[Rfam]
Shown here is an 82-nucleotide sequence from Pyrus ussuriensis x Pyrus communis, a member of the family "Small nucleolar RNA Z159/U59". The match comes from Rfam's covariance-model search (59 bits). Its family is annotated with RNA processing and nucleolus in the Gene Ontology. The base pairs follow the family's consensus structure, which was predicted with PFOLD. Taxonomically the source falls in Pyrus (Eukaryota, Viridiplantae, Mesangiospermae, Pentapetalae). A reference for the family is Chen et al. (2003), "The high diversity of snoRNAs in plants: identification and comparative study of 120 snoRNA genes from Oryza sativa", Nucleic Acids Res. The family has 10 seed sequences and 1,401 matches in Rfam 15.1.

RNA sequence: GCCUCUGAUGAUGAUUAAACUAGACCUUUUAUCUUCCGAGAUGCUCUAUGCGGAAAAUUUUGGAGACCUGAACUGAAGAGGC
Numbered sequence: 001g002c003c004u005c006u007g008a009u010g011a012u013g014a015u016u017a018a019a020c021u022a023g024a025c026c027u028u029u030u031a032u033c034u035u036c037c038g039a040g041a042u043g044c045u046c047u048a049u050g051c052g053g054a055a056a057a058u059u060u061u062g063g064a065g066a067c068c069u070g071a072a073c074u075g076a077a078g079a080g081g082c
Stems, first nucleotide, its partner, number of pairs: 003080004
Dot-bracket structure: ..((((......................................................................))))..